[Rfam]
RNA sequence: UCUUCAUUUCGCACACUCUCUCGCCGAUCUGAUCGGCGGGAUAGUGUGAGGAAUGAAGAGA
Numbered sequence: 001u002c003u004u005c006a007u008u009u010c011g012c013a014c015a016c017u018c019u020c021u022c023g024c025c026g027a028u029c030u031g032a033u034c035g036g037c038g039g040g041a042u043a044g045u046g047u048g049a050g051g052a053a054u055g056a057a058g059a060g061a
Stems, first nucleotide, its partner, number of pairs: 001059007010050001012048006019041004
Rfam assigns this 61-nucleotide sequence from Pristionchus pacificus to the family "mir-8364 microRNA precursor family". It scores 72 bits against the family's covariance model. The organism belongs to Pristionchus, within Eukaryota. Pairs were carried over by alignment from the consensus structure, which was predicted with RNAalifold. Gene Ontology terms of the family: miRNA-mediated post-transcriptional gene silencing and RISC complex.